This 77-nucleotide RNA sequence from Lottia gigantea belongs to the Rfam family "mir-242_2 microRNA precursor family".
RNA sequence: AAGUUUAUAUGUUGCGUAGGUAUUGUGCACAGGUAUUUUUUAACUCUGUGAAUUCUACCUAGGUAGCAUUUAGAUUU
Number, nucleotide and partner (000 for none) at each position: 001a000002a000003g075004u074005u073006u072007a071008u000009a069010u068011g000012u000013u065014g064015c063016g000017u061018a000019g059020g058021u000022a056023u000024u000025g053026u052027g000028c050029a049030c048031a047032g046033g045034u000035a000036u000037u000038u000039u000040u000041u000042a000043a000044c000045u033046c032047u031048g030049u029050g028051a000052a026053u025054u000055c000056u022057a000058c020059c019060u000061a017062g000063g015064u014065a013066g000067c000068a010069u009070u000071u007072a006073g005074a004075u003076u000077u000

Pairs were carried over by alignment from the consensus structure, which was predicted with RNAalifold. NCBI's taxonomy places the organism under Eukaryota, Spiralia, Gastropoda, Lottioidea, Lottia. Rfam links the family to the GO terms miRNA-mediated post-transcriptional gene silencing and RISC complex.